[Rfam]
RNA: MIR480 microRNA precursor family
Organism: Populus alba
RNA sequence: UAAUCUAUCUUAGACAAAUCAUCAUCUAGUUAUAGGAAAUACAUAUCUGAUUAUUCAGAAUCACUCGUUAUCACAAGCCUAACCAUGUAAAUCUUUUAUAUUAAUGCUGCAAAUGUAAGUAAACUGGAACUUACUCCGGAGGCAUGUAUUCGAAAUGAAU
Numbered sequence: 001u002a003a004u005c006u007a008u009c010u011u012a013g014a015c016a017a018a019u020c021a022u023c024a025u026c027u028a029g030u031u032a033u034a035g036g037a038a039a040u041a042c043a044u045a046u047c048u049g050a051u052u053a054u055u056c057a058g059a060a061u062c063a064c065u066c067g068u069u070a071u072c073a074c075a076a077g078c079c080u081a082a083c084c085a086u087g088u089a090a091a092u093c094u095u096u097u098a099u100a101u102u103a104a105u106g107c108u109g110c111a112a113a114u115g116u117a118a119g120u121a122a123a124c125u126g127g128a129a130c131u132u133a134c135u136c137c138g139g140a141g142g143c144a145u146g147u148a149u150u151c152g153a154a155a156u157g158a159a160u
Stems, first nucleotide, its partner, number of pairs: 004158002008153002012149001014147002019142001023138001027133002029130003